This 63-nucleotide RNA from Caenorhabditis brenneri belongs to the Rfam family "mir-35_2 microRNA precursor family". Lineage of the source: Eukaryota > Metazoa > Protostomia > Ecdysozoa > Caenorhabditis.
[Rfam]
RNA sequence: AGCUGAUUUAUUUUCUGGUUAUGAAUCUACAAAUAGCGUCCAUAACCGUUAUCAAUCAGCUCU
Numbered sequence: 001a002g003c004u005g006a007u008u009u010a011u012u013u014u015c016u017g018g019u020u021a022u023g024a025a026u027c028u029a030c031a032a033a034u035a036g037c038g039u040c041c042a043u044a045a046c047c048g049u050u051a052u053c054a055a056u057c058a059g060c061u062c063u
Base pairs, nucleotide, nucleotide: 001061002060003059005057006056008055009054010052011051016048017047018046019045020044021043022042023041